[Rfam]
Selenocysteine transfer RNA: a 91-nucleotide sequence from Halopseudomonas pachastrellae. It scores 75 bits against the family's covariance model.

RNA sequence: GGAUGGACAUCGUCCCCGGUGGGGCGCCCGGACUUCAACUCCGGUGAGAUGCGCAACGCGUGUCUGGUGGGUUCGACUCCCAUGUCCUUCC
Numbered sequence: 001g002g003a004u005g006g007a008c009a010u011c012g013u014c015c016c017c018g019g020u021g022g023g024g025c026g027c028c029c030g031g032a033c034u035u036c037a038a039c040u041c042c043g044g045u046g047a048g049a050u051g052c053g054c055a056a057c058g059c060g061u062g063u064c065u066g067g068u069g070g071g072u073u074c075g076a077c078u079c080c081c082a083u084g085u086c087c088u089u090c091c
Base pairs, nucleotide, nucleotide: 001091002090003089005087006086007085008084009083011026012025013024014023015022016021028044029043030042031041032040047065048064049063050062051061068082069081070080071079